[Rfam]
RNA sequence: ACAAUAGAAUCGGUUUUCUCAAGGGUGGUCGGCUCAUCCCGCUUGAAAGGGGGUGAUGCCGUAUGACAGUUUUCGAAUCUUUGAUGGCAAUGUUUGCGUUUACAAGCCUCAUCGUUGCAGUCCUGUCGUUUAACCAAAAAAAAUAAUCCACCCUUGAGUUAACGGCUCAGGUGGAUUAUCCCCUAAAAAUAGCCGAUCCCCUUAGAGGGACCAUCUAUUGUAUGGCCGAACAUGCAGCAACAUGUUCG
Numbered sequence: 001a002c003a004a005u006a007g008a009a010u011c012g013g014u015u016u017u018c019u020c021a022a023g024g025g026u027g028g029u030c031g032g033c034u035c036a037u038c039c040c041g042c043u044u045g046a047a048a049g050g051g052g053g054u055g056a057u058g059c060c061g062u063a064u065g066a067c068a069g070u071u072u073u074c075g076a077a078u079c080u081u082u083g084a085u086g087g088c089a090a091u092g093u094u095u096g097c098g099u100u101u102a103c104a105a106g107c108c109u110c111a112u113c114g115u116u117g118c119a120g121u122c123c124u125g126u127c128g129u130u131u132a133a134c135c136a137a138a139a140a141a142a143a144u145a146a147u148c149c150a151c152c153c154u155u156g157a158g159u160u161a162a163c164g165g166c167u168c169a170g171g172u173g174g175a176u177u178a179u180c181c182c183c184u185a186a187a188a189a190u191a192g193c194c195g196a197u198c199c200c201c202u203u204a205g206a207g208g209g210a211c212c213a214u215c216u217a218u219u220g221u222a223u224g225g226c227c228g229a230a231c232a233u234g235c236a237g238c239a240a241c242a243u244g245u246u247c248g
Stems, first nucleotide, its partner, number of pairs: 001221004006216003010196006018158008027148003034056003038053003042049001065127005079092001101119001103117002197210004227248008

BsrG: a 248-nucleotide sequence from Bacillus sp. cl95. It scores 119 bits against the family's covariance model. Rfam describes the family as follows. bsrE, bsrG and bsrH pair through intermolecular interactions with antisense sRNAs. They form type I toxin/antitoxin system that includes an mRNA encoding for a short, toxic peptide (bsrE, bsrG and bsrH) and an antitoxin that is comprised of an antisense RNA. bsrG encodes a 39-amino-acid toxin, and the 180 nucleotide antisense sRNA called SR4 acts as the antitoxin (they overlap by 123 nucleotides). SR4 interaction with the 3'UTR of bsrG RNA promotes bsrG degradation and inhibits its translation. BsrG interferes with cell envelope biosynthesis, causes membrane invaginations and delocalisation of the cell wall synthesis and initiates autolysis. bsrE RNA encodes 30 amino-acid toxin peptide. Its antitoxin gene, SR5 overlaps by 112 nucleotides at the 3' end of bsrE. SR5 also overlaps bsrG from nucleotide 163 to 52 (Rfam overlap check). The antitoxin SR5 promotes bsrE degradation but unlike SR4 it does not directly inhibits toxin mRNA translation. A reference for the family is Saito et al. (2008), "Novel small RNA-encoding genes in the intergenic regions of Bacillus subtilis", Gene. Pairs were carried over by alignment from the consensus structure, which was predicted with WAR. Rfam links the family to the GO terms autolysis and toxin activity.